This 181-nucleotide sequence from Sphingosinicella soli belongs to the Rfam family "Manganese Mn2+ riboswitch aptamer (yybP-ykoY)".
Rfam links the family to the GO term manganese ion binding.
The match comes from Rfam's covariance-model search (60 bits).
A reference for the family is Price et al. (2015), "Mn(2+)-sensing mechanisms of yybP-ykoY orphan riboswitches", Mol Cell.

[Rfam]
RNA sequence: CGCCCUGUCAUCUGGGGAGUAGCCAGCCGUCUUCGGACGGGCCUUCGCGUCAACAUACUUGGUCGAGAGGCCAUGGUGCGAGGGGAACGGGAUCACCGUUCGGGCGAGACCAAUGACAUCGUUUCCUUGUCCGGUCGGGCGGGGGAAGCGAUGUCGUUGGAUUUUCGCACUGCCCGACCCC
Numbered sequence: 001c002g003c004c005c006u007g008u009c010a011u012c013u014g015g016g017g018a019g020u021a022g023c024c025a026g027c028c029g030u031c032u033u034c035g036g037a038c039g040g041g042c043c044u045u046c047g048c049g050u051c052a053a054c055a056u057a058c059u060u061g062g063u064c065g066a067g068a069g070g071c072c073a074u075g076g077u078g079c080g081a082g083g084g085g086a087a088c089g090g091g092a093u094c095a096c097c098g099u100u101c102g103g104g105c106g107a108g109a110c111c112a113a114u115g116a117c118a119u120c121g122u123u124u125c126c127u128u129g130u131c132c133g134g135u136c137g138g139g140c141g142g143g144g145g146a147a148g149c150g151a152u153g154u155c156g157u158u159g160g161a162u163u164u165u166c167g168c169a170c171u172g173c174c175c176g177a178c179c180c181c
Base pairs, nucleotide, nucleotide: 027040028039029038042083043082045081046080047079048078049077050076051075052074060073061072062071063070064069089181090180